radC RNA: a 145-nucleotide RNA from Xanthomonas citri. It is annotated as a cis-regulatory element. The base pairs follow the family's consensus structure, which is taken from published work. The sequence is in the family's curated seed alignment.

Nucleotides: 145
Stems, first nucleotide, its partner, number of pairs: 011029001016024003034056006042078004058073006112145003119142001121140006
Number, partner (000 for none) and nucleotide at each position: 001000u002000u003000g004000c005000g006000c007000c008000u009000c010000c011029g012000a013000u014000u015000c016024g017023c018022c019000g020000u021000c022018g023017g024016c025000a026000u027000u028000u029011c030000c031000c032000c033000a034056g035055c036054a037053g038052c039051c040000a041000u042078g043077a044076c045075c046000u047000a048000c049000c050000a051039g052038g053037c054036u055035g056034c057000g058073g059072u060071g061070c062069g063068g064000c065000u066000c067000g068063c069062c070061g071060c072059a073058c074000a075045g076044g077043u078042c079000a080000u081000c082000c083000c084000u085000c086000a087000u088000c089000g090000g091000g092000c093000g094000c095000g096000u097000c098000c099000u100000g101000c102000g103000u104000c105000c106000u107000u108000c109000c110000a111000c112145g113144c114143c115000a116000a117000c118000c119142c120000a121140c122139a123138a124137g125136g126135g127000a128000u129000c130000u131000u132000c133000c134000u135126c136125c137124c138123u139122u140121g141000c142119g143114g144113g145112c